[Rfam]
RNA sequence: UUAAAGACUAUGAAGGGGAGAGUAGCUGUCAUAUGAGAGCUUACAGAGAGCCGGGCCGAAGCUGAGAACCGGCAGCGCGGUGAUAGCGAAAGUAGCCCUGGAGUUGCUGAACUGAAAUAUAAAUAUAGAGUAGGUUCAGACGGAAGCGCCCGUUAUAAGCGCAGGGUAUAUUUAUAUGUACCUGUGGAGGUUGUUGCCGCGAGGCAACAAUGAAAUUGGGUGGUAACACGAAAUAUAACCUUUCGUCCCUAUA
Numbered sequence: 001u002u003a004a005a006g007a008c009u010a011u012g013a014a015g016g017g018g019a020g021a022g023u024a025g026c027u028g029u030c031a032u033a034u035g036a037g038a039g040c041u042u043a044c045a046g047a048g049a050g051c052c053g054g055g056c057c058g059a060a061g062c063u064g065a066g067a068a069c070c071g072g073c074a075g076c077g078c079g080g081u082g083a084u085a086g087c088g089a090a091a092g093u094a095g096c097c098c099u100g101g102a103g104u105u106g107c108u109g110a111a112c113u114g115a116a117a118u119a120u121a122a123a124u125a126u127a128g129a130g131u132a133g134g135u136u137c138a139g140a141c142g143g144a145a146g147c148g149c150c151c152g153u154u155a156u157a158a159g160c161g162c163a164g165g166g167u168a169u170a171u172u173u174a175u176a177u178g179u180a181c182c183u184g185u186g187g188a189g190g191u192u193g194u195u196g197c198c199g200c201g202a203g204g205c206a207a208c209a210a211u212g213a214a215a216u217u218g219g220g221u222g223g224u225a226a227c228a229c230g231a232a233a234u235a236u237a238a239c240c241u242u243u244c245g246u247c248c249c250u251a252u253a
Stems, first nucleotide, its partner, number of pairs: 007104002015099004025087006039076003050073005107139007141152003190211007218249003228246005